[Rfam]
RNA sequence: GGAUGUGAGGGCGAUCUGGCUGUGACACCUGUCACCCCAUUGAUUGCCAGGGUUGAUUUGGCUGAUCUGGCUGGCUAGGCUGGUGUCCCCCUCCUCCCUCACCGAUCCAUGUGCGUCCCUCCCGAAGCUGGGCACUCGGUGGAAGAGAACGACCUUCCCCCUAGAAGAGAGGACCAGACUUCCGUCAAGGGUAUAUGAGUAGCUGUGCUCCCCUGCUAGAUCCUCCAAACAAGCUCUCAAGGUCCAUUUGUAGGAGAACGUAGGGUAGUCAAGCUUCUAAGACUCCAGAUACAUCCAAAUGAGGCGCUGCAUGUGUCAGUCUGCCUUUCUGA
Numbered sequence: 001g002g003a004u005g006u007g008a009g010g011g012c013g014a015u016c017u018g019g020c021u022g023u024g025a026c027a028c029c030u031g032u033c034a035c036c037c038c039a040u041u042g043a044u045u046g047c048c049a050g051g052g053u054u055g056a057u058u059u060g061g062c063u064g065a066u067c068u069g070g071c072u073g074g075c076u077a078g079g080c081u082g083g084u085g086u087c088c089c090c091c092u093c094c095u096c097c098c099u100c101a102c103c104g105a106u107c108c109a110u111g112u113g114c115g116u117c118c119c120u121c122c123c124g125a126a127g128c129u130g131g132g133c134a135c136u137c138g139g140u141g142g143a144a145g146a147g148a149a150c151g152a153c154c155u156u157c158c159c160c161c162u163a164g165a166a167g168a169g170a171g172g173a174c175c176a177g178a179c180u181u182c183c184g185u186c187a188a189g190g191g192u193a194u195a196u197g198a199g200u201a202g203c204u205g206u207g208c209u210c211c212c213c214u215g216c217u218a219g220a221u222c223c224u225c226c227a228a229a230c231a232a233g234c235u236c237u238c239a240a241g242g243u244c245c246a247u248u249u250g251u252a253g254g255a256g257a258a259c260g261u262a263g264g265g266u267a268g269u270c271a272a273g274c275u276u277c278u279a280a281g282a283c284u285c286c287a288g289a290u291a292c293a294u295c296c297a298a299a300u301g302a303g304g305c306g307c308u309g310c311a312u313g314u315g316u317c318a319g320u321c322u323g324c325c326u327u328u329c330u331g332a
Base pairs, nucleotide, nucleotide: 001108002107003106005102006101007100008099009098010097011096013093014092018090019089024087025086026085027084028083029082031080032079033078035074036073037070038069039068042067043066044065045064046062047061048060116172117171118167120165121164122139123138124137125136127135141160142159147157148156149155202274203273204272208268209267211265212264213263214262215261216260223256224255225254226253229251230250231249232248233247299330301327302326303325304324305323306320307319308318309317
This 332-nucleotide sequence from Molossus molossus belongs to the Rfam family "7SK RNA". A reference for the family is Blencowe (2002), "Transcription: surprising role for an elusive small nuclear RNA", Curr Biol. By type it is a non-coding RNA gene. Rfam's curators write: 7SK was discovered as an abundant small nuclear RNA in the mid-70s but a possible function has only recently been suggested. Two independent studies have found that 7SK RNA binds the CDK9/cyclin T complex (known as elongation factor P-TEFb). P-TEFb activates transcription by phosphorylating the C-terminal domain of RNA polymerase II. This process is negatively regulated by the 7SK RNP. The secondary structure of 7SK RNA shown here was proposed by Wasserman and Steitz on the basis of chemical modification and enzymatic cleavage experiments. This family contains a number of annotated pseudogenes and 7SK derived repeats. Taxonomically the source falls in Molossus (Eukaryota, Bilateria, Dipnotetrapodomorpha, Molossidae). The family is grouped with related families in Rfam's "7SK clan". A search with the family's covariance model found it, with a score of 340 bits.